[Rfam]
RNA sequence: CGUGAAUGGUGGCAACACCAGUCAUGAUUGAGCAGAAGUCAGCAGAUGCCAUAGUAGCCAAACGCUUAUCGUAAUGGAUGAGACACGGUGAAGGGC
Numbered sequence: 001c002g003u004g005a006a007u008g009g010u011g012g013c014a015a016c017a018c019c020a021g022u023c024a025u026g027a028u029u030g031a032g033c034a035g036a037a038g039u040c041a042g043c044a045g046a047u048g049c050c051a052u053a054g055u056a057g058c059c060a061a062a063c064g065c066u067u068a069u070c071g072u073a074a075u076g077g078a079u080g081a082g083a084c085a086c087g088g089u090g091a092a093g094g095g096c
Stems, first nucleotide, its partner, number of pairs: 001026002004023002007020005038047003048096003057089003